[Rfam]
RNA sequence: CCGUACUAUGUGGGGAGCUAGCGGUGCCCUGUACCUACAAUCCGCUACAGUAGGACAGAAUACCUGUUGCGGCUCUGCGUAUGGAAAGCAGUUGCCGUUAAGUGAUGUUGAGUCUAAGGUCUUGUGCAACGGAGUGCUAUGAACCGUGUCAGGGCUUGACCGCAGCAGCACUAAGUAGAUUGCGACGUGUGCCACGAGGUAGCUUUAGAGGAGUCGGCUGGCGGACGAACGUUUCGGUAUGUUUUGUCAAGGCAGGUUGUACGG
Number, nucleotide and partner (000 for none) at each position: 001c264002c263003g262004u261005a260006c259007u000008a000009u057010g056011u055012g030013g029014g028015g027016a000017g025018c024019u023020a000021g000022c000023g019024g018025u017026g000027c015028c014029c013030u012031g000032u000033a000034c054035c053036u052037a051038c050039a000040a000041u000042c000043c000044g000045c000046u000047a000048c000049a000050g038051u037052a036053g035054g034055a011056c010057a009058g000059a000060a000061u000062a257063c256064c255065u254066g253067u252068u251069g000070c000071g248072g247073c246074u000075c000076u000077g000078c241079g240080u239081a238082u237083g000084g235085a234086a233087a232088g000089c000090a000091g230092u229093u000094g000095c224096c223097g222098u221099u220100a000101a000102g218103u217104g215105a214106u213107g000108u000109u000110g000111a000112g000113u209114c208115u207116a206117a205118g204119g203120u202121c198122u197123u196124g195125u194126g193127c189128a188129a000130c187131g186132g000133a000134g183135u000136g000137c178138u177139a176140u175141g000142a000143a000144c000145c000146g171147u170148g169149u168150c000151a000152g000153g000154g163155c162156u000157u000158g000159a000160c000161c000162g155163c154164a000165g000166c000167a000168g149169c148170a147171c146172u000173a000174a000175g140176u139177a138178g137179a000180u000181u000182g000183c134184g000185a000186c131187g130188u128189g127190u000191g000192c000193c126194a125195c124196g123197a122198g121199g000200u000201a000202g120203c119204u118205u117206u116207a115208g114209a113210g000211g000212a000213g106214u105215c104216g000217g103218c102219u000220g099221g098222c097223g096224g095225a000226c000227g000228a000229a092230c091231g000232u087233u086234u085235c084236g000237g082238u081239a080240u079241g078242u000243u000244u000245u000246g073247u072248c071249a000250a000251g068252g067253c066254a065255g064256g063257u062258u000259g006260u005261a004262c003263g002264g001

A member of the RNA family "Bacterial large signal recognition particle RNA" from Firmicutes bacterium CAG:552, 264 nucleotides long. The signal recognition particle (SRP) is a universally conserved ribonucleoprotein involved in the co-translational targeting of proteins to membranes. By type it is a non-coding RNA gene.